[Rfam]
RNA: SAM riboswitch aptamer (S box leader)
RNA sequence: CGGCCAUCGAGACCGGCGGAGGGACAGGCCCUUUGAUGCCGGGGCAGCCCGCGGACGCGCAAGCGCACGCGUAGGUGCCAAAUCCUGCGGGGGGCUUGCGCCCUUCGGAAGAUGGUUC
Numbered sequence: 001c002g003g004c005c006a007u008c009g010a011g012a013c014c015g016g017c018g019g020a021g022g023g024a025c026a027g028g029c030c031c032u033u034u035g036a037u038g039c040c041g042g043g044g045c046a047g048c049c050c051g052c053g054g055a056c057g058c059g060c061a062a063g064c065g066c067a068c069g070c071g072u073a074g075g076u077g078c079c080a081a082a083u084c085c086u087g088c089g090g091g092g093g094g095c096u097u098g099c100g101c102c103c104u105u106c107g108g109a110a111g112a113u114g115g116u117u118c
Stems, first nucleotide, its partner, number of pairs: 002117007013042005021031003025087004043079004048075002050071004083110001088107006